[Rfam]
RNA sequence: UGAAAACACCCAUUACGGGGGUAGUGCCCCAACCCGGAGCAACUUUACCGUAUUCCGCAUUG
Dot-bracket structure: .................(((((.((.((.......)).)).)))))................
Numbered sequence: 001u002g003a004a005a006a007c008a009c010c011c012a013u014u015a016c017g018g019g020g021g022u023a024g025u026g027c028c029c030c031a032a033c034c035c036g037g038a039g040c041a042a043c044u045u046u047a048c049c050g051u052a053u054u055c056c057g058c059a060u061u062g
Stems, first nucleotide, its partner, number of pairs: 018046005024040002027037002
Rfam assigns this 62-nucleotide RNA sequence from Leptolyngbya sp. FACHB-16 to the family "Plastid-psbN 5UTR RNA". About the family: Plastid psbN is a non-coding RNA (ncRNA) recognised in plastids. NCBI's taxonomy places the organism under Bacteria, Cyanobacteriota, Cyanophyceae, Leptolyngbyales, Leptolyngbya. On this family, see Richter et al., Plant Commun 2023: "Retrograde signaling in plants: A critical review focusing on the GUN pathway and beyond". Rfam 15.1 lists 2,345 matches to the family in 397 species.